[Rfam]
Nucleotides: 156
Stems, first nucleotide, its partner, number of pairs: 011140004018029003030135006040069002070120003078094004097114004
Number, partner (000 for none) and nucleotide at each position: 001000a002000c003000a004000c005000a006000a007000a008000a009000u010000c011140g012139g013138c014137c015000a016000a017000a018029a019028c020027c021000c022000g023000a024000a025000a026000g027020g028019g029018u030135g031134c032133g033132g034131g035130g036000g037000a038000a039000c040069c041068g042000c043000a044000a045000c046000a047000c048000c049000g050000u051000g052000c053000g054000g055000c056000a057000g058000u059000g060000c061000c062000g063000c064000c065000a066000c067000u068041u069040g070120g071119g072118g073000u074000g075000a076000a077000u078094c079093g080092c081091a082000g083000a084000g085000c086000a087000g088000c089000u090000u091081u092080g093079c094078g095000u096000a097114g098113g099112g100111u101000u102000g103000a104000a105000c106000u107000c108000c109000c110000a111100g112099c113098c114097c115000g116000a117000a118072c119071c120070c121000g122000a123000c124000a125000a126000c127000u128000a129000a130035c131034c132033u133032c134031g135030c136000c137014g138013g139012c140011c141000u142000c143000u144000a145000u146000a147000a148000g149000g150000a151000g152000g153000a154000a155000g156000u
Shown here is a 156-nucleotide sequence from Cohnella pontilimi, a member of the family "c-di-AMP riboswitch aptamer (ydaO/yuaA leader)". The organism belongs to Cohnella, within Bacteria. A search with the family's covariance model found it, with a score of 97 bits.